RNA: Small nucleolar RNA snoR27
Organism: Jatropha curcas
RNA sequence: UUGGGAUCAGUGAUGUGAAUUAGAAACUGCGUUAUCUAUCUGUAACUUCCUUGUUGGAAUUGAAGAUGUCUACAAACAAAACCUGAGAUCCCAU
Dot-bracket structure: .((((((................................................................................)))))).